[Rfam]
RNA sequence: UGGCGCCCAACGUGGGGCCUGGGUACUGGGGACAAUGUGAGGGACACGACGGAGAAAAAAGGGGUGCACACCUGCUCAAAUACUUCGGAGACGCUGCAGGAGCCUGCCCCGACUGAGCCAAAGGUAAGUUGGUUGUUCAAUCAUGGGGCAAGAAUUAAGUCAGCAUCAGAUUUAUGUGAUACAGUUAAGAGAAGCUCUACAGGCAAGAGGAGUAAAGGUUAAAAUUGAGGAUUUAUUUCAUUUCUUUGAUUUUGUAAAGGACCUUUGUCCUU
Number, nucleotide and partner (000 for none) at each position: 001u000002g000003g000004c000005g000006c031007c030008c029009a000010a000011c000012g026013u025014g024015g000016g000017g000018c000019c000020u000021g000022g000023g000024u014025a013026c012027u000028g000029g008030g007031g006032a000033c000034a000035a000036u048037g047038u046039g000040a000041g000042g000043g000044a000045c000046a038047c037048g036049a000050c000051g000052g000053a000054g000055a000056a000057a000058a000059a000060a000061g000062g000063g000064g000065u000066g000067c000068a000069c000070a000071c000072c000073u000074g000075c000076u000077c000078a000079a000080a000081u126082a125083c124084u122085u121086c000087g000088g000089a000090g000091a000092c115093g000094c000095u111096g110097c000098a000099g107100g000101a000102g000103c000104c000105u000106g000107c099108c000109c000110c096111g095112a000113c000114u000115g092116a000117g000118c000119c000120a000121a085122a084123g000124g083125u082126a081127a000128g000129u000130u000131g000132g149133u148134u000135g000136u147137u146138c145139a144140a000141u000142c000143a000144u139145g138146g137147g136148g133149c132150a000151a000152g000153a000154a000155u000156u199157a198158a000159g195160u194161c000162a000163g000164c000165a000166u000167c000168a000169g000170a000171u000172u000173u000174a000175u000176g000177u000178g000179a000180u000181a000182c000183a000184g000185u000186u000187a000188a000189g000190a000191g000192a000193a000194g160195c159196u000197c000198u157199a156200c000201a000202g000203g000204c000205a000206a000207g247208a246209g245210g244211a243212g242213u000214a000215a000216a234217g233218g232219u231220u230221a000222a000223a000224a000225u000226u000227g000228a000229g000230g220231a219232u218233u217234u216235a000236u000237u000238u000239c000240a000241u000242u212243u211244c210245u209246u208247u207248g000249a000250u000251u000252u000253u000254g000255u000256a000257a272258a271259g270260g269261a268262c267263c000264u000265u000266u000267g262268u261269c260270c259271u258272u257
Record summary
Mason-Pfizer monkey virus packaging signal: a 272-nucleotide sequence from Nannospalax galili. Rfam's curators write: This family represents a group of sequences that are related to the Mason-Pfizer monkey virus (MPMV) packaging signal. The packaging signal is located in the 5' UTR and is required for specific RNA encapsidation. The literature on the family includes a 2004 paper in Virus Res by Mustafa et al., "Mutational analysis of the predicted secondary RNA structure of the Mason-Pfizer monkey virus packaging signal". The source organism's lineage runs through Eukaryota, Dipnotetrapodomorpha, Tetrapoda, Rodentia and Nannospalax. Rfam links the family to the GO term viral genome packaging.